[Rfam]
Nucleotides: 085
Stems, first nucleotide, its partner, number of pairs: 004082012017069004023063002031057004
Number, partner (000 for none) and nucleotide at each position: 001000g002000u003000u004082g005081c006080a007079u008078a009077u010076g011075a012074g013073u014072c015071c016000u017069u018068c019067a020066u021000u022000u023063g024062g025000u026000g027000c028000g029000c030000a031057u032056a033055g034054c035000u036000c037000g038000a039000u040000u041000u042000u043000a044000a045000u046000c047000c048000g049000a050000u051000a052000u053000u054034g055033c056032u057031a058000g059000c060000u061000g062024c063023c064000u065000u066020g067019u068018g069017a070000a071015g072014g073013g074012c075011u076010u077009a078008u079007g080006u081005g082004u083000g084000a085000u